[Rfam]
RNA sequence: CACGACCAGGGCAAACCAUCUGAAAAGGUGGGACGCAAAGCCUCCGGCCUUCCUUCUGACAGUAGUUCAGAAAAAGGUAGCGGGGUUGCCGAAG
Numbered sequence: 001c002a003c004g005a006c007c008a009g010g011g012c013a014a015a016c017c018a019u020c021u022g023a024a025a026a027g028g029u030g031g032g033a034c035g036c037a038a039a040g041c042c043u044c045c046g047g048c049c050u051u052c053c054u055u056c057u058g059a060c061a062g063u064a065g066u067u068c069a070g071a072a073a074a075a076g077g078u079a080g081c082g083g084g085g086u087u088g089c090c091g092a093a094g
Stems, first nucleotide, its partner, number of pairs: 001094001003091002011036002016031006034080001039087004044083003047078005
The family of this 94-nucleotide sequence from Vibrio sediminis is "c-di-GMP-I-GGC riboswitch aptamer".